[Rfam]
RNA sequence: UUAACUCAAAUUUGUAUGGAGUUUGAACGUUUGCUUACGUUUGCCUCUAGGGACGCUGUUCCAACUACAUACAAAUUUGAGUUA
Numbered sequence: 001u002u003a004a005c006u007c008a009a010a011u012u013u014g015u016a017u018g019g020a021g022u023u024u025g026a027a028c029g030u031u032u033g034c035u036u037a038c039g040u041u042u043g044c045c046u047c048u049a050g051g052g053a054c055g056c057u058g059u060u061c062c063a064a065c066u067a068c069a070u071a072c073a074a075a076u077u078u079g080a081g082u083u084a
Base pairs, nucleotide, nucleotide: 008078009077010076011075012074013073014072015071016070018068020066021065022064023063025061026060027059028058029057034052035051036050039047
RNA: mir-2807 microRNA precursor family
Organism: Bombyx mori